[Rfam]
RNA sequence: GUUUGACACGGACCUACGGUGGCCAGUCUGGCCCCGACGUUCGGACGAGGUGCAAUGAC
Numbered sequence: 001g002u003u004u005g006a007c008a009c010g011g012a013c014c015u016a017c018g019g020u021g022g023c024c025a026g027u028c029u030g031g032c033c034c035c036g037a038c039g040u041u042c043g044g045a046c047g048a049g050g051u052g053c054a055a056u057g058a059c
Base pairs, nucleotide, nucleotide: 007049009047010046013043016041018035019034021033022032023031024030025029
Shown here is a 59-nucleotide RNA, a member of the family "Selenocysteine insertion sequence 3". The match comes from Rfam's covariance-model search (70 bits). The family has 24 seed sequences and 640 matches in Rfam 15.1. The family's RNA type in Rfam is cis-regulatory element.